[Rfam]
RNA sequence: AUUAAAAAGAAAGCGCCUGAACUUAAGUAGGACGGAAAAUACUUGAGUUGACGAGGGACAGGGUUUAUCGAAGUUCGGCGGAUGCCCUGCGGUGUAGUCACCACCGAUAACGAGUCUACAAAGCUAUCAAGCAAUUGAUAGUACAAAGAGACUCAGGUGAAAGGU
Numbered sequence: 001a002u003u004a005a006a007a008a009g010a011a012a013g014c015g016c017c018u019g020a021a022c023u024u025a026a027g028u029a030g031g032a033c034g035g036a037a038a039a040u041a042c043u044u045g046a047g048u049u050g051a052c053g054a055g056g057g058a059c060a061g062g063g064u065u066u067a068u069c070g071a072a073g074u075u076c077g078g079c080g081g082a083u084g085c086c087c088u089g090c091g092g093u094g095u096a097g098u099c100a101c102c103a104c105c106g107a108u109a110a111c112g113a114g115u116c117u118a119c120a121a122a123g124c125u126a127u128c129a130a131g132c133a134a135u136u137g138a139u140a141g142u143a144c145a146a147a148g149a150g151a152c153u154c155a156g157g158u159g160a161a162a163g164g165u
Base pairs, nucleotide, nucleotide: 020049021048022047023046024045025044026043027042029040059089060088061087062086063085068078069077070076071075090106091105092104093103094102112154113153114152115151116150117149124141125140126139127138128137129136130135